Overview
The family of this 74-nucleotide sequence from Esox lucius is "Small nucleolar RNA SNORD2". A reference for the family is Zhou et al. (2004), "Identification of a novel box C/D snoRNA from mouse nucleolar cDNA library", Gene.
RNA sequence: AAGUGUAAUGAUGGCAUUUCAUCUUUCGGGACAGACACGAUAAUGGUGACAUCAUUUUUUUUUACUGAACACUC
Numbered sequence: 001a002a003g004u005g006u007a008a009u010g011a012u013g014g015c016a017u018u019u020c021a022u023c024u025u026u027c028g029g030g031a032c033a034g035a036c037a038c039g040a041u042a043a044u045g046g047u048g049a050c051a052u053c054a055u056u057u058u059u060u061u062u063u064a065c066u067g068a069a070c071a072c073u074c
Stems, first nucleotide, its partner, number of pairs: 002073005
Taxonomically the source falls in Esox (Eukaryota, Teleostomi, Euteleosteomorpha, Esocidae). Its family is annotated with nucleolus and RNA processing in the Gene Ontology.